Record summary: Rfam assigns this 124-nucleotide RNA sequence from Echinops telfairi to the family "Small Cajal body specific RNA 23". The source organism's lineage runs through Eukaryota, Eumetazoa, Chordata, Tenrecidae and Echinops. scaRNAs are a specific class of small nuclear RNAs which localise to the Cajal bodies and guide the modification of RNA polymerase II transcribed spliceosomal RNAs U1, U2, U4, U5 and U12. ACA11 belongs to the H/ACA box class of guide RNAs as it has the predicted hairpin-hinge-hairpin-tail structure,the conserved H/ACA-box motifs and is found associated with GAR1. The base pairs follow the family's consensus structure, which was predicted with RNAfold. It is one of the family's seed sequences.

[Rfam]
RNA sequence: GUGCUCACCAAGGCUUGGUCCUUACUACAUGGUUCCGGCCUGCCUGCGUGAGCAAGAGAAGGAGGGCUGGUUUGGGGGUGUCCUGUCCAAGUGGCCCCAGGACUCCAUGGUUUCCAGGCCAACA
Numbered sequence: 001g002u003g004c005u006c007a008c009c010a011a012g013g014c015u016u017g018g019u020c021c022u023u024a025c026u027a028c029a030u031g032g033u034u035c036c037g038g039c040c041u042g043c044c045u046g047c048g049u050g051a052g053c054a055a056g057a058g059a060a061g062g063a064g065g066g067c068u069g070g071u072u073u074g075g076g077g078g079u080g081u082c083c084u085g086u087c088c089a090a091g092u093g094g095c096c097c098c099a100g101g102a103c104u105c106c107a108u109g110g111u112u113u114c115c116a117g118g119c120c121a122a123c124a
Stems, first nucleotide, its partner, number of pairs: 003053006012044003017040004025032002064120001067117004072110003077106002080103005085096001087094002